The family of this 78-nucleotide RNA from Nezara viridula is "mir-263 microRNA precursor family". The family is grouped with related families in Rfam's "mir-182 clan". A reference for the family is Li et al. (2009), "Direct sequencing and expression analysis of a large number of miRNAs in Aedes aegypti and a multi-species survey of novel mosquito miRNAs", BMC Genomics. A search with the family's covariance model found it, with a score of 55 bits. The base pairs follow the family's consensus structure, which was predicted with RNAalifold.

RNA sequence: CUCCUCCUGAGAAUGGCACUGAAAGAAUUCACGGGUUUGUCCAUCCCCGUGGUUCUACAGUGCCAGUCUCAGUGGGAC
Numbered sequence: 001c002u003c004c005u006c007c008u009g010a011g012a013a014u015g016g017c018a019c020u021g022a023a024a025g026a027a028u029u030c031a032c033g034g035g036u037u038u039g040u041c042c043a044u045c046c047c048c049g050u051g052g053u054u055c056u057a058c059a060g061u062g063c064c065a066g067u068c069u070c071a072g073u074g075g076g077a078c
Base pairs, nucleotide, nucleotide: 003076004075005074007072008071009070010069014065015064016063017062018061020059021058025055026054027053029052030051031050032049033048034047